Shown here is a 75-nucleotide sequence from Anser cygnoides, a member of the family "Small nucleolar RNA SNORD101". The family has 26 seed sequences and 658 matches in Rfam 15.1. A search with the family's covariance model found it, with a score of 77 bits. The family's consensus secondary structure was predicted with PFOLD. Taxonomically the source falls in Anser (Eukaryota, Craniata, Archosauria, Neognathae).
RNA sequence: GUUUGAGUGAUGACUCCACAAAUUGUCGGAUACCCCUUCACUCCCGUUAUGAGUGAUAACAGUGGUCUGACAAAC
Numbered sequence: 001g002u003u004u005g006a007g008u009g010a011u012g013a014c015u016c017c018a019c020a021a022a023u024u025g026u027c028g029g030a031u032a033c034c035c036c037u038u039c040a041c042u043c044c045c046g047u048u049a050u051g052a053g054u055g056a057u058a059a060c061a062g063u064g065g066u067c068u069g070a071c072a073a074a075c
Base pairs, nucleotide, nucleotide: 001075002074003073004072005071

Its family is annotated with RNA processing and nucleolus in the Gene Ontology.
Its Rfam clan is "SNORD101 clan".
By type it is a C/D-box small nucleolar RNA.